[Rfam]
RNA sequence: CUCUUAUCUUGAGCGGUGGAGGGACUGGCCCUAUGAAACCGCGGCAACCUUCAAGCUAUCAUGCUUGAAAGGUGCUAAUUCCUGCAAAGCCUAGGCUUUGAUAGAUGAGGG
Numbered sequence: 001c002u003c004u005u006a007u008c009u010u011g012a013g014c015g016g017u018g019g020a021g022g023g024a025c026u027g028g029c030c031c032u033a034u035g036a037a038a039c040c041g042c043g044g045c046a047a048c049c050u051u052c053a054a055g056c057u058a059u060c061a062u063g064c065u066u067g068a069a070a071g072g073u074g075c076u077a078a079u080u081c082c083u084g085c086a087a088a089g090c091c092u093a094g095g096c097u098u099u100g101a102u103a104g105a106u107g108a109g110g111g
Stems, first nucleotide, its partner, number of pairs: 001111008013042005021031003025084001027082002043076004048072002050069006080103001085100006
Dot-bracket structure: ((((((((....(((((...(((.[.[[)))......)))))((((.((((((((........)))))).))))))...(]].]((((((....))))))..)))))))))
The record is a 111-nucleotide RNA sequence from Virgibacillus salarius, which matches "SAM riboswitch aptamer (S box leader)" in Rfam. Its family is annotated with regulation of gene expression in the Gene Ontology.